[Rfam]
RNA sequence: ACAUACACUGAGUGGCCAGAUUAUUAUGCUUCUGAAUCAUAAUAAUCUGGCCACUCAGUGUAUAU
Numbered sequence: 001a002c003a004u005a006c007a008c009u010g011a012g013u014g015g016c017c018a019g020a021u022u023a024u025u026a027u028g029c030u031u032c033u034g035a036a037u038c039a040u041a042a043u044a045a046u047c048u049g050g051c052c053a054c055u056c057a058g059u060g061u062a063u064a065u
Stems, first nucleotide, its partner, number of pairs: 004062014019047010

Rfam assigns this 65-nucleotide RNA from Cnephaeus nilssonii to the family "mir-9256 microRNA precursor family". The source organism's lineage runs through Eukaryota, Opisthokonta, Metazoa, Amniota and Cnephaeus.